[Rfam]
RNA sequence: CGCCGCGCAGAGGGAGAGCCCAGCCACGAGCUGGCGCCGAAGGAGCAACCGCCCCGGAAACUCUCAGGCAAAAGGACCCUGCGCACUA
Numbered sequence: 001c002g003c004c005g006c007g008c009a010g011a012g013g014g015a016g017a018g019c020c021c022a023g024c025c026a027c028g029a030g031c032u033g034g035c036g037c038c039g040a041a042g043g044a045g046c047a048a049c050c051g052c053c054c055c056g057g058a059a060a061c062u063c064u065c066a067g068g069c070a071a072a073a074g075g076a077c078c079c080u081g082c083g084c085a086c087u088a
Base pairs, nucleotide, nucleotide: 006083007082008081009080010079012078013077020034021033022032023031036069037068038067039065040064043063044062045061049057050056

Rfam assigns this 88-nucleotide sequence from Acetobacter pasteurianus to the family "Glycine riboswitch aptamer". The literature on the family includes a 2004 paper in Science by Mandal et al., "A glycine-dependent riboswitch that uses cooperative binding to control gene expression". Lineage of the source: Bacteria > Pseudomonadati > Pseudomonadota > Alphaproteobacteria > Acetobacter.